[Rfam]
RNA sequence: UCAGAUGGCCGGGCGAUCGCGGCGCGCAAGCGUCGAGGAAAGUCCGGGCUCCACGGUGACAAGGCGGCGGGUAACGCCCGCCGGGGGCGACCCCAGGGAUAGCGCCACAGAGAGCAAACCGCCUCUCCUCGUGAGGGGUAAGGGUGAAAGGGUGGGGUAAGAGCCCACCGCGGGGCUGGUAACAGUCCUGGCACGGCAAGCCCCGCCUGGAGCAAGACCGAAUAGGGAUUCCGCGCCUGACAAGUCGAUCUUCGGGUCGAGACUUCAGGCAGGACCGUCACCGGUCCGAGGCGUCCGGGUUGGUCGCGAGAACCGUCCCGCGAGGGGCGGUCCAGAGGAAUGAUCGUCACCGGCCGUUCUCGGCCGGGACAGAACCCGGCUUACAGGCCAUCUGAUCCG
Numbered sequence: 001u002c003a004g005a006u007g008g009c010c011g012g013g014c015g016a017u018c019g020c021g022g023c024g025c026g027c028a029a030g031c032g033u034c035g036a037g038g039a040a041a042g043u044c045c046g047g048g049c050u051c052c053a054c055g056g057u058g059a060c061a062a063g064g065c066g067g068c069g070g071g072u073a074a075c076g077c078c079c080g081c082c083g084g085g086g087g088c089g090a091c092c093c094c095a096g097g098g099a100u101a102g103c104g105c106c107a108c109a110g111a112g113a114g115c116a117a118a119c120c121g122c123c124u125c126u127c128c129u130c131g132u133g134a135g136g137g138g139u140a141a142g143g144g145u146g147a148a149a150g151g152g153u154g155g156g157g158u159a160a161g162a163g164c165c166c167a168c169c170g171c172g173g174g175g176c177u178g179g180u181a182a183c184a185g186u187c188c189u190g191g192c193a194c195g196g197c198a199a200g201c202c203c204c205g206c207c208u209g210g211a212g213c214a215a216g217a218c219c220g221a222a223u224a225g226g227g228a229u230u231c232c233g234c235g236c237c238u239g240a241c242a243a244g245u246c247g248a249u250c251u252u253c254g255g256g257u258c259g260a261g262a263c264u265u266c267a268g269g270c271a272g273g274a275c276c277g278u279c280a281c282c283g284g285u286c287c288g289a290g291g292c293g294u295c296c297g298g299g300u301u302g303g304u305c306g307c308g309a310g311a312a313c314c315g316u317c318c319c320g321c322g323a324g325g326g327g328c329g330g331u332c333c334a335g336a337g338g339a340a341u342g343a344u345c346g347u348c349a350c351c352g353g354c355c356g357u358u359c360u361c362g363g364c365c366g367g368g369a370c371a372g373a374a375c376c377c378g379g380c381u382u383a384c385a386g387g388c389c390a391u392c393u394g395a396u397c398c399g
Base pairs, nucleotide, nucleotide: 001395002394003393004392005391006390007389008388009387010386011384012348013347014346015345016344017343018342020035021034022033023032024031025030040382041381042380044379045378046377047376048375049212050211051210052209062208063207064206065205066204067081068080069079070078071077082096083094084093085092086091097203098202102201103200104197105196106195119143120142121139122138123137124136125135126134127133151169152168153167154166155165156164170192171190172189173188174187175186176185177184178183216305217304218303219302226296227295228294229293231291272287273286274285275284276283312331313330314329315328316327317326318325319324
RNA: Bacterial RNase P class A